[Rfam]
Nucleotides: 071
Base pairs, nucleotide, nucleotide: 001071002070003069004068005067008064009063010062012060013059014058015057016056017055018054019053020052021051022050023049026047027046028045029044030043031042032040
Number, partner (000 for none) and nucleotide at each position: 001071u002070u003069c004068a005067a006000u007000a008064a009063c010062g011000g012060g013059u014058a015057u016056u017055c018054u019053u020052g021051g022050g023049u024000a025000u026047a027046u028045a029044a030043u031042a032040c033000a034000g035000a036000u037000g038000g039000c040032g041000u042031u043030g044029u045028u046027a047026u048000u049023g050022c051021u052020u053019g054018a055017g056016a057015a058014u059013a060012c061000g062010c063009g064008u065000a066000g067005u068004u069003g070002a071001g

Shown here is a 71-nucleotide RNA sequence from Anolis carolinensis, a member of the family "mir-137 microRNA precursor family".
The sequence is in the family's curated seed alignment.
Lineage of the source: Eukaryota > Eumetazoa > Gnathostomata > Toxicofera > Anolis.
On this family, see Ruby et al., Genome Res 2007: "Evolution, biogenesis, expression, and target predictions of a substantially expanded set of Drosophila microRNAs".